[Rfam]
RNA sequence: AGGUGUUACAGCUCUUUCAGAAUUUGUCUAGCAUGUUUUCCGGUUUUCACUCCCGGGAAGGCUCCG
Numbered sequence: 001a002g003g004u005g006u007u008a009c010a011g012c013u014c015u016u017u018c019a020g021a022a023u024u025u026g027u028c029u030a031g032c033a034u035g036u037u038u039u040c041c042g043g044u045u046u047u048c049a050c051u052c053c054c055g056g057g058a059a060g061g062c063u064c065c066g
Stems, first nucleotide, its partner, number of pairs: 035062007042051001
This 66-nucleotide RNA from Pongo abelii belongs to the Rfam family "U7 small nuclear RNA". Taxonomically the source falls in Pongo (Eukaryota, Euteleostomi, Eutheria, Boreoeutheria). About the family: Animal histone pre-mRNAs are spliced by a different mechanism than nuclear pre-mRNAs and self-splicing introns. This processing involves the U7 snRNP, which contains only one RNA species: U7. The 5' end of U7 RNA is thought to base-pair to a conserved spacer element downstream of the cleavage site in histone pre-mRNA. This family contains a number of annotated U7 pseudogenes.